[Rfam]
RNA sequence: GGGACGGCAUCCGUAGAUCGGAGUUGUACCCGGCGGGAACUGUCGCAUGGCUAGCGAUGUAUUCACGCACUCUGCUCUGAGCCGUAGGGACCGAGACAGAAGG
Numbered sequence: 001g002g003g004a005c006g007g008c009a010u011c012c013g014u015a016g017a018u019c020g021g022a023g024u025u026g027u028a029c030c031c032g033g034c035g036g037g038a039a040c041u042g043u044c045g046c047a048u049g050g051c052u053a054g055c056g057a058u059g060u061a062u063u064c065a066c067g068c069a070c071u072c073u074g075c076u077c078u079g080a081g082c083c084g085u086a087g088g089g090a091c092c093g094a095g096a097c098a099g100a101a102g103g
Stems, first nucleotide, its partner, number of pairs: 001031003004027005010022004072099003075095003079091001082089002

Rfam assigns this 103-nucleotide sequence from Paenibacillus sp. 598K to the family "pan motif".